[Rfam]
RNA sequence: AUAUCAUCAAGAGCUGACAGAGGGACUGGCCCUAUGAAGUCGCGGCAACCAUCUAGUAUAGAACGGUGCCAAUUCCACGGAAUAUCCGAGAGAUGAAGA
Dot-bracket structure: .(.(((((....(.((((...(((..[[[)))......)))))((((.((.((((...))))..))))))...(]]]((((...))))..)))))).).